[Rfam]
RNA: Bacterial RNase P class A
Organism: Lachnospiraceae bacterium KH1T2
RNA sequence: CAGGCAGACCAGACGAUGGCCGGUACAGCUUUAUGGCUGUACGGGAGGAAAGUCCGGGCUUCGCAGGGCAGGAUGCCGGCUAACGGCCGGCCGAGGUAACUCGCGGGAAAGCGCAACAGAAAGUAAACAGCCGGGCAACCGGUAAUGGUGAAACGGCGGUGUAAGAGACCACCGGUUCGAUGGUAACACCGAACGCAUUGCAAGCCCCAUCCGAAGCAAGAUCAAACAGAAAACUAUAGAUUUGCCCGAUCUGUUUUCAGGUAGAUCGCUUGAGGCUGCUGGUAACAGUAGUCCUGGAUAGAUCAUCGUCAAAUACAGAACCCGGCUUAUAGAUCUGCCUGUAUU
Numbered sequence: 001c002a003g004g005c006a007g008a009c010c011a012g013a014c015g016a017u018g019g020c021c022g023g024u025a026c027a028g029c030u031u032u033a034u035g036g037c038u039g040u041a042c043g044g045g046a047g048g049a050a051a052g053u054c055c056g057g058g059c060u061u062c063g064c065a066g067g068g069c070a071g072g073a074u075g076c077c078g079g080c081u082a083a084c085g086g087c088c089g090g091c092c093g094a095g096g097u098a099a100c101u102c103g104c105g106g107g108a109a110a111g112c113g114c115a116a117c118a119g120a121a122a123g124u125a126a127a128c129a130g131c132c133g134g135g136c137a138a139c140c141g142g143u144a145a146u147g148g149u150g151a152a153a154c155g156g157c158g159g160u161g162u163a164a165g166a167g168a169c170c171a172c173c174g175g176u177u178c179g180a181u182g183g184u185a186a187c188a189c190c191g192a193a194c195g196c197a198u199u200g201c202a203a204g205c206c207c208c209a210u211c212c213g214a215a216g217c218a219a220g221a222u223c224a225a226a227c228a229g230a231a232a233a234c235u236a237u238a239g240a241u242u243u244g245c246c247c248g249a250u251c252u253g254u255u256u257u258c259a260g261g262u263a264g265a266u267c268g269c270u271u272g273a274g275g276c277u278g279c280u281g282g283u284a285a286c287a288g289u290a291g292u293c294c295u296g297g298a299u300a301g302a303u304c305a306u307c308g309u310c311a312a313a314u315a316c317a318g319a320a321c322c323c324g325g326c327u328u329a330u331a332g333a334u335c336u337g338c339c340u341g342u343a344u345u
Stems, first nucleotide, its partner, number of pairs: 001341008010332001011330001012310007020045002023042006050328003054325005059216004066247004071212005076090005091105001092103004106207002111205002113201003128147002130143005155173002158170003174196001175194005181188002220267004229258006238252005274293008